[Rfam]
RNA: Small nucleolar RNA Z43
Organism: Vigna angularis
RNA sequence: GGACUGUGAUGAUUCUGUGAUAAGGUCUCGUUCGUCGUAAUUGGCCUCAUUGGCCUUGCCGACCAUCCUGCUAUAUCACCACCCAUAUUCUGAGUCC
Numbered sequence: 001g002g003a004c005u006g007u008g009a010u011g012a013u014u015c016u017g018u019g020a021u022a023a024g025g026u027c028u029c030g031u032u033c034g035u036c037g038u039a040a041u042u043g044g045c046c047u048c049a050u051u052g053g054c055c056u057u058g059c060c061g062a063c064c065a066u067c068c069u070g071c072u073a074u075a076u077c078a079c080c081a082c083c084c085a086u087a088u089u090c091u092g093a094g095u096c097c
Stems, first nucleotide, its partner, number of pairs: 001097004048052001